The record is a 117-nucleotide RNA from bacterium D16-54, which matches "TPP riboswitch aptamer (THI element)" in Rfam. The family's consensus secondary structure is taken from published work. The match comes from Rfam's covariance-model search (65 bits). From the family's description: Vitamin B(1) in its active form thiamin pyrophosphate (TPP) is an essential coenzyme that is synthesised by coupling of pyrimidine and thiazole moieties in bacteria.
RNA sequence: AAAAUUAAAAAGGGGUGCUGGAAAGUCGUCCGGCUGAGAUAAAAUACCGCUUAUUUUAAACCCUGGAACCUGAUCUGGAUAAUGCCAGCGUAGGAAGGACAUUUGAUGAACCUGUUU
Numbered sequence: 001a002a003a004a005u006u007a008a009a010a011a012g013g014g015g016u017g018c019u020g021g022a023a024a025g026u027c028g029u030c031c032g033g034c035u036g037a038g039a040u041a042a043a044a045u046a047c048c049g050c051u052u053a054u055u056u057u058a059a060a061c062c063c064u065g066g067a068a069c070c071u072g073a074u075c076u077g078g079a080u081a082a083u084g085c086c087a088g089c090g091u092a093g094g095a096a097g098g099a100c101a102u103u104u105g106a107u108g109a110a111c112c113u114g115u116u117u
Stems, first nucleotide, its partner, number of pairs: 006105004011064004016058001017034005041057005069094004075088004
Dot-bracket structure: .....((((.((((.((((((........)))))......(((((.......))))))..))))....((((..((((......))))..)))).......))))............